[Rfam]
RNA sequence: CACGAUAAACGGCAAACCUGUCGAAAGGCAGGGACGCAAAGCUAUAGGGCCUUCUAACAGAUGGCAGCCAGUUACCGAAA
Numbered sequence: 001c002a003c004g005a006u007a008a009a010c011g012g013c014a015a016a017c018c019u020g021u022c023g024a025a026a027g028g029c030a031g032g033g034a035c036g037c038a039a040a041g042c043u044a045u046a047g048g049g050c051c052u053u054c055u056a057a058c059a060g061a062u063g064g065c066a067g068c069c070a071g072u073u074a075c076c077g078a079a080a
Stems, first nucleotide, its partner, number of pairs: 003077002012037002017032006035067001040073004047069002049065003

A member of the RNA family "c-di-GMP-I-GGC riboswitch aptamer" from a Paenibacillaceae bacterium, 80 nucleotides long.
Lineage of the source: Bacteria > Bacillati > Bacillota > Bacilli > Paenibacillaceae.